Small nucleolar RNA SNORD16: a 100-nucleotide RNA from Poecilia formosa. The source organism's lineage runs through Eukaryota, Clupeocephala, Acanthomorphata, Poeciliidae and Poecilia. By type it is a C/D-box small nucleolar RNA. It scores 82 bits against the family's covariance model. A reference for the family is Huttenhofer et al. (2001), "RNomics: an experimental approach that identifies 201 candidates for novel, small, non-messenger RNAs in mouse", EMBO J.
RNA sequence: UGCUAUGAUGGUGUAAUUUGCGUCUGAUCUUGUGAAUGGUGACAGUUGCCUGCUGUCAUUAAGCCAUCACAGGUUAUUGAUGAGUGAUAAACUCUGAGCA
Numbered sequence: 001u002g003c004u005a006u007g008a009u010g011g012u013g014u015a016a017u018u019u020g021c022g023u024c025u026g027a028u029c030u031u032g033u034g035a036a037u038g039g040u041g042a043c044a045g046u047u048g049c050c051u052g053c054u055g056u057c058a059u060u061a062a063g064c065c066a067u068c069a070c071a072g073g074u075u076a077u078u079g080a081u082g083a084g085u086g087a088u089a090a091a092c093u094c095u096g097a098g099c100a
Stems, first nucleotide, its partner, number of pairs: 001100003021082004030072005039064002041057005
Its family is annotated with RNA processing and nucleolus in the Gene Ontology.
Its Rfam clan is "SNORD16 clan".